[Rfam]
RNA sequence: AUAAUGGUACUUCCGGAAACGGCUCGGAGAGAUCCUCGGAGGGGGUGAGAUUCCCGUGA
Number, nucleotide and partner (000 for none) at each position: 001a000002u000003a000004a000005u000006g000007g000008u000009a000010c000011u000012u056013c022014c021015g020016g000017a000018a000019a000020c015021g014022g013023c041024u040025c039026g000027g037028a036029g035030a000031g000032a000033u000034c000035c029036u028037c027038g000039g025040a024041g023042g055043g054044g053045g000046u000047g000048a000049g000050a000051u000052u000053c044054c043055c042056g012057u000058g000059a000
Notes:
A member of the RNA family "pemK RNA", 59 nucleotides long. Pairs were carried over by alignment from the consensus structure, which is taken from published work.